The family of this 47-nucleotide sequence from Salvator merianae is "Histone 3' UTR stem-loop". Rfam's curators write: The mRNAs of metazoan histone genes lack a poly-A tail. 3' end processing occurs at a site between a highly conserved stem-loop (modelled by this family) and a purine rich region around 20 nts downstream (the histone downstream element, or HDE).

RNA sequence: CCAAAGGCUCUUUUAAGAGCCACCCACUGCUUUCACCAGAAGAGCGU
Number, nucleotide and partner (000 for none) at each position: 001c000002c000003a000004a000005a000006g021007g020008c019009u018010c017011u016012u000013u000014u000015a000016a011017g010018a009019g008020c007021c006022a000023c000024c000025c000026a000027c000028u000029g000030c000031u000032u000033u000034c000035a000036c000037c000038a000039g000040a000041a000042g000043a000044g000045c000046g000047u000